Lysine riboswitch aptamer: a 169-nucleotide sequence from Neobittarella massiliensis. Taxonomically the source falls in Neobittarella (ex Bilen et al. 2018) (Bacteria, Bacillota, Clostridia, Oscillospiraceae). Rfam describes the family as follows. Riboswitches are metabolite binding domains within certain messenger RNAs that serve as precision sensors for their corresponding targets.
[Rfam]
RNA sequence: AAAGUUGGUAGAGGCGCAGUGCGGAUGAGUACCGCGGCACAGGGGGCACCCGGUGACGCCGCGGAAAAGGCCAAAUUGCCGAAACUGUCUGCCGGGCGCGGCAGGUCAGUUGGGCGCAGGGAAAACAUCUCUGUGACUCCUGUUUUUUAACAGAGGCGCUAUCGGUGAA
Numbered sequence: 001a002a003a004g005u006u007g008g009u010a011g012a013g014g015c016g017c018a019g020u021g022c023g024g025a026u027g028a029g030u031a032c033c034g035c036g037g038c039a040c041a042g043g044g045g046g047c048a049c050c051c052g053g054u055g056a057c058g059c060c061g062c063g064g065a066a067a068a069g070g071c072c073a074a075a076u077u078g079c080c081g082a083a084a085c086u087g088u089c090u091g092c093c094g095g096g097c098g099c100g101g102c103a104g105g106u107c108a109g110u111u112g113g114g115c116g117c118a119g120g121g122a123a124a125a126c127a128u129c130u131c132u133g134u135g136a137c138u139c140c141u142g143u144u145u146u147u148u149a150a151c152a153g154a155g156g157c158g159c160u161a162u163c164g165g166u167g168a169a
Base pairs, nucleotide, nucleotide: 006164007163008162009161010160011159016079017078018077019076020075023072024071032064033063034062035061036060037059038058083111084110085109086108087106088105089104090103091102092101093100094099112138113137115135116134117133118132119131120130121129122128140153141152142151143150144149